[Rfam]
RNA: Group II catalytic intron D1-D4-5
Organism: Eubacterium uniforme
Nucleotides: 278
Stems, first nucleotide, its partner, number of pairs: 018053006031043002034040001054270004064109004068101005074095007116266005124257006130228003136224002232251008
Number, partner (000 for none) and nucleotide at each position: 001000g002000a003000g004000a005000a006000c007000u008000g009000c010000a011000u012000a013000a014000c015000u016000g017000a018053a019052a020051u021050c022049u023048c024000a025000a026000a027000u028000g029000a030000g031043g032042g033000a034040g035000u036000a037000a038000c039000g040034c041000c042032c043031c044000g045000a046000a047000g048023g049022g050021g051020a052019u053018u054270c055269g056268c057267u058000a059000a060000u061000a062000c063000u064109u065108c066107g067106a068101a069100u070099a071098g072097c073000g074095u075094u076093g077092g078091a079090u080089u081000a082000a083000u084000a085000c086000a087000g088000a089080a090079a091078u092077u093076c094075a095074a096000g097072g098071u099070u100069a101068u102000a103000a104000g105000c106067u107066c108065g109064g110000a111000g112000a113000a114000g115000u116266c117265g118264c119263g120262c121000g122000a123000a124257g125256c126255g127254c128253a129252u130228c131227c132226u133000a134000a135000c136224g137223g138000a139000u140000a141000a142000a143000u144000a145000u146000c147000g148000a149000c150000a151000u152000g153000a154000a155000c156000u157000c158000a159000a160000a161000u162000a163000c164000c165000c166000a167000u168000u169000g170000g171000u172000a173000c174000a175000a176000a177000a178000g179000u180000g181000a182000c183000c184000a185000g186000a187000g188000u189000c190000c191000a192000c193000c194000u195000g196000u197000g198000g199000g200000a201000a202000g203000a204000g205000a206000g207000g208000a209000a210000u211000u212000u213000a214000g215000a216000u217000a218000u219000u220000g221000a222000g223137c224136c225000g226132a227131g228130g229000a230000a231000a232251g233250a234249u235248a236247c237246u238245u239244g240000g241000a242000g243000g244239c245238a246237a247236g248235u249234g250233u251232u252129g253128u254127g255126c256125g257124u258000g259000a260000c261000a262120g263119u264118g265117c266116g267057g268056g269055c270054g271000g272000g273000g274000u275000u276000u277000c278000c